Shown here is a 329-nucleotide sequence from Acinetobacter defluvii, a member of the family "Group I catalytic intron". Rfam describes the family as follows. Group I catalytic introns are large self-splicing ribozymes. They catalyse their own excision from mRNA, tRNA and rRNA precursors in a wide range of organisms. The core secondary structure consists of 9 paired regions (P1-P9). Gene Ontology term of the family: Group I intron splicing. A reference for the family is Cate et al. (1996), "Crystal structure of a group I ribozyme domain: principles of RNA packing", Science. It scores 95 bits against the family's covariance model. The family's consensus secondary structure is taken from published work.
RNA sequence: CGACAGGCUUAAAUUCGGUGAGCCUCUAUCAAGUAAUUGAUAGCAAUCGUUUGGCAGCGUGACCGAUUACGCCAAAUGGCGGGGAUUAACUAUAAGUCCCCGAAAAACUUUGUGAAUUGCUGGGAGUCCCUUAGAGCCUAAACACUACAACGUAACUAGAAAUGGUAAGCGUGAAUGUUUGAAAAGUUUAGGAUUGGGUAAUCAGCAGCCAAGUACCGUAUAGGUAAAGGUUCAACGACUAGCCGCAAGGCGUACACUCAAGCGAGUGGAAGCGCAAAGCCCCUGACAACAGGGUGAUGAUAUAGUCUAAUCUGCAAUGAAAGUUGCAG
Numbered sequence: 001c002g003a004c005a006g007g008c009u010u011a012a013a014u015u016c017g018g019u020g021a022g023c024c025u026c027u028a029u030c031a032a033g034u035a036a037u038u039g040a041u042a043g044c045a046a047u048c049g050u051u052u053g054g055c056a057g058c059g060u061g062a063c064c065g066a067u068u069a070c071g072c073c074a075a076a077u078g079g080c081g082g083g084g085a086u087u088a089a090c091u092a093u094a095a096g097u098c099c100c101c102g103a104a105a106a107a108c109u110u111u112g113u114g115a116a117u118u119g120c121u122g123g124g125a126g127u128c129c130c131u132u133a134g135a136g137c138c139u140a141a142a143c144a145c146u147a148c149a150a151c152g153u154a155a156c157u158a159g160a161a162a163u164g165g166u167a168a169g170c171g172u173g174a175a176u177g178u179u180u181g182a183a184a185a186g187u188u189u190a191g192g193a194u195u196g197g198g199u200a201a202u203c204a205g206c207a208g209c210c211a212a213g214u215a216c217c218g219u220a221u222a223g224g225u226a227a228a229g230g231u232u233c234a235a236c237g238a239c240u241a242g243c244c245g246c247a248a249g250g251c252g253u254a255c256a257c258u259c260a261a262g263c264g265a266g267u268g269g270a271a272g273c274g275c276a277a278a279g280c281c282c283c284u285g286a287c288a289a290c291a292g293g294g295u296g297a298u299g300a301u302a303u304a305g306u307c308u309a310a311u312c313u314g315c316a317a318u319g320a321a322a323g324u325u326g327c328a329g
Base pairs, nucleotide, nucleotide: 005025006024007023008022009021010020011019029040030039031038108279109278110277111276113274114273118207119206120205121204122203123202128198129197130196208231209230216223235308237307238306239305240304241303281294282293283292284291285290314327315326316325317324318323